[Rfam]
Description: A member of the RNA family "L31-Actinobacteria ribosomal protein leader" from Micromonospora sp. HK10, 66 nucleotides long. Lineage of the source: Bacteria > Bacillati > Actinomycetota > Actinomycetes > Micromonospora.

RNA sequence: CCGGUUCCGGUUCACGCCCGAGUCCCGUCGCACCACGACGGGACGCCCGACGGCGACCCGGCGACC
Numbered sequence: 001c002c003g004g005u006u007c008c009g010g011u012u013c014a015c016g017c018c019c020g021a022g023u024c025c026c027g028u029c030g031c032a033c034c035a036c037g038a039c040g041g042g043a044c045g046c047c048c049g050a051c052g053g054c055g056a057c058c059c060g061g062c063g064a065c066c
Stems, first nucleotide, its partner, number of pairs: 003066003007061004015055004019049002